[Rfam]
A member of the RNA family "Nuclear RNase P" from Cytospora schulzeri, 391 nucleotides long.
It scores 36 bits against the family's covariance model.
The literature on the family includes a 2002 paper in Annu Rev Biochem by Xiao et al., "Eukaryotic Ribonuclease P: A Plurality of Ribonucleoprotein Enzymes".

RNA sequence: AACGGAGAGAUCUUUGCGCAAGCAAUCUUCUCUCAAAGCCUCGUGUCUUCUUCGGAAGCGCCUGGCACCAUAUUUGCAUGUGAGAAAUUCGGAGAAACUCCCGAGACCUUGCCUGAUCUCUUGCGCUUCUCGUGGGCGCGAGAUGUUGAAGGCCUGCCGGUAACGGCACGGGGCGAACUCGCCUCCGCAGUUGGCAUCAGAAAAGCAGGGCGCUGGCUGUCCUCGUGUAUAACCCGCAAGGGGGAAGAUGCGGCUCCAGUCCAGCGUUCCUCUGGGAGCGUCACUGCCGGGAUUGCUUGUGACAGCAAGCUGAAGUGCGAUGGGUGGCGUGUCGUCUCCUUCCCUCGUGGAAGGGGCCUCAUCAUUCAAUUCCGAUCACUCUUUGGGCGGU
Numbered sequence: 001a002a003c004g005g006a007g008a009g010a011u012c013u014u015u016g017c018g019c020a021a022g023c024a025a026u027c028u029u030c031u032c033u034c035a036a037a038g039c040c041u042c043g044u045g046u047c048u049u050c051u052u053c054g055g056a057a058g059c060g061c062c063u064g065g066c067a068c069c070a071u072a073u074u075u076g077c078a079u080g081u082g083a084g085a086a087a088u089u090c091g092g093a094g095a096a097a098c099u100c101c102c103g104a105g106a107c108c109u110u111g112c113c114u115g116a117u118c119u120c121u122u123g124c125g126c127u128u129c130u131c132g133u134g135g136g137c138g139c140g141a142g143a144u145g146u147u148g149a150a151g152g153c154c155u156g157c158c159g160g161u162a163a164c165g166g167c168a169c170g171g172g173g174c175g176a177a178c179u180c181g182c183c184u185c186c187g188c189a190g191u192u193g194g195c196a197u198c199a200g201a202a203a204a205g206c207a208g209g210g211c212g213c214u215g216g217c218u219g220u221c222c223u224c225g226u227g228u229a230u231a232a233c234c235c236g237c238a239a240g241g242g243g244g245a246a247g248a249u250g251c252g253g254c255u256c257c258a259g260u261c262c263a264g265c266g267u268u269c270c271u272c273u274g275g276g277a278g279c280g281u282c283a284c285u286g287c288c289g290g291g292a293u294u295g296c297u298u299g300u301g302a303c304a305g306c307a308a309g310c311u312g313a314a315g316u317g318c319g320a321u322g323g324g325u326g327g328c329g330u331g332u333c334g335u336c337u338c339c340u341u342c343c344c345u346c347g348u349g350g351a352a353g354g355g356g357c358c359u360c361a362u363c364a365u366u367c368a369a370u371u372c373c374g375a376u377c378a379c380u381c382u383u384u385g386g387g388c389g390g391u
Base pairs, nucleotide, nucleotide: 001391003389004388005384006383007382011327012326014324015323018081019080020079022077023076024075025074090374091373092372093371094370100291101290102289103288155168156167157166158165159164169187170186171185172183173182174181188286189285190284192283193282194281195280207271208270209269329362330361331360334357335356336355337354338353